[Rfam]
RNA sequence: CCCCUAUGAUGAAUUGCCAUGCUAAUACUGAGAUGCCAGGUAGGGUUUUUUUUUUACCCUGCGUUGGGUGUCGUUGAGAAAAAUCUCAUUUUUCAUAUCUGAGGGGC
Dot-bracket structure: ((((....................................(((((...........))))).........................................)))).
The family of this 107-nucleotide RNA from Erinaceus europaeus is "Small nucleolar RNA U6-53/MBII-28". The literature on the family includes a 2001 paper in EMBO J by Huttenhofer et al., "RNomics: an experimental approach that identifies 201 candidates for novel, small, non-messenger RNAs in mouse". Rfam links the family to the GO terms RNA processing and nucleolus. Taxonomically the source falls in Erinaceus (Eukaryota, Opisthokonta, Gnathostomata, Laurasiatheria).